A member of the RNA family "Ribosomal protein L19 leader" from Gracilibacillus boraciitolerans, 41 nucleotides long.
Taxonomically the source falls in Gracilibacillus boraciitolerans (Bacteria, Bacillota, Caryophanales, Bacillaceae).
Its family is annotated with regulation of gene expression in the Gene Ontology.
From the family's description: This family is a putative r-protein leader autoregulatory structure found in B. subtilis and other low-GC Gram-positive bacteria.
Rfam classes the family as a cis-regulatory leader.
The match comes from Rfam's covariance-model search (36 bits).
The base pairs follow the family's consensus structure, which was predicted with CMfinder.
RNA sequence: ACGAUGUUCCGCUAUCUGUAUAGUUUCGGUAUGAGCAUUAG
Numbered sequence: 001a002c003g004a005u006g007u008u009c010c011g012c013u014a015u016c017u018g019u020a021u022a023g024u025u026u027c028g029g030u031a032u033g034a035g036c037a038u039u040a041g
Stems, first nucleotide, its partner, number of pairs: 003039007013031002016029003